[Rfam]
RNA: Small nucleolar RNA SNORD116
RNA sequence: GGAUUGAUGAUGACUGCUAUCUAAACAUUCCUUGGAAAAGCUGAACAAAAUGAGUGAAAACUCCUUACCGUCUCACUCAUUGAACUGAGGUCC
Numbered sequence: 001g002g003a004u005u006g007a008u009g010a011u012g013a014c015u016g017c018u019a020u021c022u023a024a025a026c027a028u029u030c031c032u033u034g035g036a037a038a039a040g041c042u043g044a045a046c047a048a049a050a051u052g053a054g055u056g057a058a059a060a061c062u063c064c065u066u067a068c069c070g071u072c073u074c075a076c077u078c079a080u081u082g083a084a085c086u087g088a089g090g091u092c093c
Stems, first nucleotide, its partner, number of pairs: 001093005026056005032048003